Shown here is a 467-nucleotide part of an RNA from Trichinella sp. T8, a member of the family "Eukaryotic large subunit ribosomal RNA". The source organism's lineage runs through Eukaryota, Bilateria, Protostomia, Trichinellidae and Trichinella. Gene Ontology terms of the family: ribosome and structural constituent of ribosome.
[Rfam]
RNA sequence: GACAAGUCGUUGCGAUAGUAAUCCUGCUCAGUACGAGAGGAACCGCGGGAUCAGACAUUUGGUUCAUGCGCUCGGCUGAAAGGCCGGUGGCGCGAAGCUAGCAUCUGCAAGAUUAUGACUGAACGCCUCUAAGUCAGAAUCUUUUCUAGUCAUUGGCAACGAUAAGUUGCGUCCAGACUCGAUGCGAGGAAACGAUUAGGCUUUGCUAUACGGCGAAGCCAUUAUCAGACCACGGUAGCAGGCAGUAUGGGAUUGUUACGAAAAAGCAAUUUUUUGAAGUCAGUUGAAUUCAAUCAAACUGCUAACAAUUCCACUGCGAAUGACUCCAUUCGAAUCAAUCGAAGCACAGCGGUCAGGAUGUCGAACAUUUUGCAGACGACAAAAAUACCGGUUCAGGUGUCGUAAUCAGUAGAGCAGUCAACACACUGCGAUCUGAUGAGACUCAUCCUUGUAAUCGAUUUGCUCGU
Numbered sequence: 001g002a003c004a005a006g007u008c009g010u011u012g013c014g015a016u017a018g019u020a021a022u023c024c025u026g027c028u029c030a031g032u033a034c035g036a037g038a039g040g041a042a043c044c045g046c047g048g049g050a051u052c053a054g055a056c057a058u059u060u061g062g063u064u065c066a067u068g069c070g071c072u073c074g075g076c077u078g079a080a081a082g083g084c085c086g087g088u089g090g091c092g093c094g095a096a097g098c099u100a101g102c103a104u105c106u107g108c109a110a111g112a113u114u115a116u117g118a119c120u121g122a123a124c125g126c127c128u129c130u131a132a133g134u135c136a137g138a139a140u141c142u143u144u145u146c147u148a149g150u151c152a153u154u155g156g157c158a159a160c161g162a163u164a165a166g167u168u169g170c171g172u173c174c175a176g177a178c179u180c181g182a183u184g185c186g187a188g189g190a191a192a193c194g195a196u197u198a199g200g201c202u203u204u205g206c207u208a209u210a211c212g213g214c215g216a217a218g219c220c221a222u223u224a225u226c227a228g229a230c231c232a233c234g235g236u237a238g239c240a241g242g243c244a245g246u247a248u249g250g251g252a253u254u255g256u257u258a259c260g261a262a263a264a265a266g267c268a269a270u271u272u273u274u275u276g277a278a279g280u281c282a283g284u285u286g287a288a289u290u291c292a293a294u295c296a297a298a299c300u301g302c303u304a305a306c307a308a309u310u311c312c313a314c315u316g317c318g319a320a321u322g323a324c325u326c327c328a329u330u331c332g333a334a335u336c337a338a339u340c341g342a343a344g345c346a347c348a349g350c351g352g353u354c355a356g357g358a359u360g361u362c363g364a365a366c367a368u369u370u371u372g373c374a375g376a377c378g379a380c381a382a383a384a385a386u387a388c389c390g391g392u393u394c395a396g397g398u399g400u401c402g403u404a405a406u407c408a409g410u411a412g413a414g415c416a417g418u419c420a421a422c423a424c425a426c427u428g429c430g431a432u433c434u435g436a437u438g439a440g441a442c443u444c445a446u447c448c449u450u451g452u453a454a455u456c457g458a459u460u461u462g463c464u465c466g467u
Stems, first nucleotide, its partner, number of pairs: 006163008016148003021051007052107004060100003067094005072087006109143003116136005171359004176354004363465002366462002368384005389457005395449003399442002406436004411432001414429005